[Rfam]
RNA sequence: UAAUGUAAUUGAAAAUGAUUAUCAAUUCCAAAUAUAAGACAUUCCCCCCACACAUAUUUGUUCUUAAUUGGAUUAAUCAUUUUCAUAAAUAUCCCCUUUUAUAUGCCCGUAAAAGACUAACGUUGCGAGACGACGUGAAAUAUAAAAGCCGGUUUUACUUUGUAAAAUCGGCUUUU
Dot-bracket structure: ....(((.(((((((((((....(((.(((.....(((((...................)).)))...)))))).))))))))))..).)))...(((((((......))))))).......(((((......))))).....((((((((((((((.....))))))))))))))